The record is a 75-nucleotide sequence from Desulfosporosinus youngiae, which matches "tRNA" in Rfam. Lineage of the source: Bacteria > Bacillati > Bacillota > Desulfitobacteriaceae > Desulfosporosinus youngiae. The family's RNA type in Rfam is transfer RNA.

RNA sequence: GGCCUCGUAGCUCAGUGGAUAGAGCGGGGGUUUCCUAAACCCUGUCUUGCGGAGGUUCGACUCCUCCCGGGGUCA
Numbered sequence: 001g002g003c004c005u006c007g008u009a010g011c012u013c014a015g016u017g018g019a020u021a022g023a024g025c026g027g028g029g030g031u032u033u034c035c036u037a038a039a040c041c042c043u044g045u046c047u048u049g050c051g052g053a054g055g056u057u058c059g060a061c062u063c064c065u066c067c068c069g070g071g072g073u074c075a
Stems, first nucleotide, its partner, number of pairs: 001074007010025004027043005051067005
Source information:
Rfam links the family to the GO term triplet codon-amino acid adaptor activity. It scores 57 bits against the family's covariance model.